[Rfam]
The record is a 139-nucleotide RNA from Marmota monax, which matches "Small Cajal body specific RNA 21" in Rfam. Lineage of the source: Eukaryota > Amniota > Xerinae > Marmotini > Marmota. scaRNAs are a specific class of small nuclear RNAs which localise to the Cajal bodies and guide the modification of RNA polymerase II transcribed spliceosomal RNAs U1, U2, U4, U5 and U12. ACA68 (SCARNA21) is a member of the H/ACA class of snoRNAs that guide the sites of modification of uridines to pseudouridines. This snoRNA was identified by computational screening and its expression in mouse experimentally verified by Northern blot and primer extension analysis. Its family is annotated with RNA processing, Cajal body and nucleolus in the Gene Ontology.
RNA sequence: UGGGUCAGUUUCCUGGGGGUGGACUCAGCCUGUUCCACUUCCCCUCAGUCGAGCCUAAAGUAAAGAGGCCAGGUGUCUUCUUAUAUGGGAGAGAUGUUUAAGAAAGGAACCUUACCUGGGCUGUCCUAGCCUCAUAUUU
Numbered sequence: 001u002g003g004g005u006c007a008g009u010u011u012c013c014u015g016g017g018g019g020u021g022g023a024c025u026c027a028g029c030c031u032g033u034u035c036c037a038c039u040u041c042c043c044c045u046c047a048g049u050c051g052a053g054c055c056u057a058a059a060g061u062a063a064a065g066a067g068g069c070c071a072g073g074u075g076u077c078u079u080c081u082u083a084u085a086u087g088g089g090a091g092a093g094a095u096g097u098u099u100a101a102g103a104a105a106g107g108a109a110c111c112u113u114a115c116c117u118g119g120g121c122u123g124u125c126c127u128a129g130c131c132u133c134a135u136a137u138u139u
Base pairs, nucleotide, nucleotide: 002055003054005052006051015043016042017041018039019038020037021036022035023034065133066132067131068130069129071127072126073125077120078119079118087112088111089110